[Rfam]
RNA sequence: CGGGCUGAUCGAAAGAUCCAGGUCCACCGCAGGCGGGGGGAUUCCCC
Numbered sequence: 001c002g003g004g005c006u007g008a009u010c011g012a013a014a015g016a017u018c019c020a021g022g023u024c025c026a027c028c029g030c031a032g033g034c035g036g037g038g039g040g041a042u043u044c045c046c047c
Stems, first nucleotide, its partner, number of pairs: 002025005007018004
Shown here is a 47-nucleotide RNA sequence, a member of the family "DUF3800-XI RNA". The family's RNA type in Rfam is small RNA. Rfam describes the family as follows. Actinobacteria, Firmicutes, Proteobacteria, Spirochaetes (1 example). The family's consensus secondary structure is taken from published work. The sequence is in the family's curated seed alignment.